[Rfam]
RNA: Pseudoknot of the regulatory region of the repBA gene
Organism: Candidatus Erwinia dacicola
RNA sequence: AACCCCCUGAAAUCUGUCUCAACUUGGCGGAAGAUGCCAGAUAUCAGGGGGUCAAAAGCAGGCGCCGAGCCUGUAAAGGAUUAUAACGCAUGAUAGCUCUAAAACAACAAUAUUCUGCCCUAAGC
Numbered sequence: 001a002a003c004c005c006c007c008u009g010a011a012a013u014c015u016g017u018c019u020c021a022a023c024u025u026g027g028c029g030g031a032a033g034a035u036g037c038c039a040g041a042u043a044u045c046a047g048g049g050g051g052u053c054a055a056a057a058g059c060a061g062g063c064g065c066c067g068a069g070c071c072u073g074u075a076a077a078g079g080a081u082u083a084u085a086a087c088g089c090a091u092g093a094u095a096g097c098u099c100u101a102a103a104a105c106a107a108c109a110a111u112a113u114u115c116u117g118c119c120c121u122a123a124g125c
Stems, first nucleotide, its partner, number of pairs: 002052009013041004018036001019034002026119006